[Rfam]
Description
U11 spliceosomal RNA: a 136-nucleotide sequence from Coregonus sp. 'balchen'. The match comes from Rfam's covariance-model search (120 bits). It is annotated as a spliceosomal small nuclear RNA. Taxonomically the source falls in Coregonus (Eukaryota, Bilateria, Craniata, Actinopteri).

RNA sequence: AAAAAGGGCUUCUGCUAUGUUUAGCACAGGAAGGGUGGGGAUUCACCACUCUUCUUGCGGAAUCGAUAUCAAGAGAUUUCGGAAGCAUAAUUUUUACUGACCGGGGCUGCGAAUGAUCGUCAAUCUUUGCGCCCCA
Numbered sequence: 001a002a003a004a005a006g007g008g009c010u011u012c013u014g015c016u017a018u019g020u021u022u023a024g025c026a027c028a029g030g031a032a033g034g035g036u037g038g039g040g041a042u043u044c045a046c047c048a049c050u051c052u053u054c055u056u057g058c059g060g061a062a063u064c065g066a067u068a069u070c071a072a073g074a075g076a077u078u079u080c081g082g083a084a085g086c087a088u089a090a091u092u093u094u095u096a097c098u099g100a101c102c103g104g105g106g107c108u109g110c111g112a113a114u115g116a117u118c119g120u121c122a123a124u125c126u127u128u129g130c131g132c133c134c135c136a
Stems, first nucleotide, its partner, number of pairs: 008086005013026005027057012058081007104134004109130005115125003
The literature on the family includes a 1988 paper in Proc Natl Acad Sci U S A by Montzka and Steitz, "Additional low-abundance human small nuclear ribonucleoproteins: U11, U12, etc".